[Rfam]
The record is a 132-nucleotide RNA sequence from Paramesorhizobium leguminum, which matches "Alphaproteobacterial sRNA ar35" in Rfam.
Nucleotides: 132
Base pairs, nucleotide, nucleotide: 002042003040004039005038011037012036013035014034015033051096052095053094054093057088058087059086060085063082064081066080067079068078098131099130100129101128102127103126104125105124106123107122108121109120110119111118
Number, partner (000 for none) and nucleotide at each position: 001000c002042a003040g004039u005038u006000g007000g008000u009000u010000g011037c012036a013035a014034u015033g016000g017000g018000a019000u020000a021000u022000u023000g024000a025000c026000c027000g028000u029000c030000c031000u032000a033015u034014a035013u036012u037011g038005a039004a040003u041000u042002u043000a044000u045000c046000g047000a048000a049000u050000c051096c052095a053094u054093c055000u056000c057088c058087g059086c060085u061000u062000u063082u064081g065000a066080c067079c068078a069000c070000g071000g072000a073000u074000g075000u076000a077000c078068u079067g080066g081064c082063a083000c084000a085060g086059g087058u088057g089000u090000u091000g092000a093054g094053a095052u096051g097000a098131g099130u100129g101128a102127a103126g104125a105124a106123g107122g108121u109120c110119g111118g112000g113000c114000u115000u116000g117000c118111c119110c120109g121108g122107c123106c124105u125104u126103u127102u128101u129100u130099a131098u132000u
Overview:
Rfam classes the family as a small RNA. The organism belongs to Paramesorhizobium, within Bacteria.